[Rfam]
This 169-nucleotide RNA sequence from Medicago truncatula belongs to the Rfam family "MIR2619 microRNA precursor family". NCBI's taxonomy places the organism under Eukaryota, Viridiplantae, Embryophyta, rosids, Medicago.
RNA sequence: AAACCGCCUCAUAAGUUUUGCAACUGUAACAGUUUAGGCCCCCAAGGCAAAAAAAAUAAAAAUAAAUAACACGUGGCACCUCACUUAGGGUGCCACGUCAGCGUAGACCGAGUCAAAAUUGGUCUUGGGGGACAAAACUGCCACAAGUGCAAAACUUAGGGGGCGGUUU
Dot-bracket structure: ((.(((((...(((((((((((..(((..((((((.(.(((((((.........................((.(((((((........))))))).))..........................))))))).).))))))..)))..)))))))))))...))))).))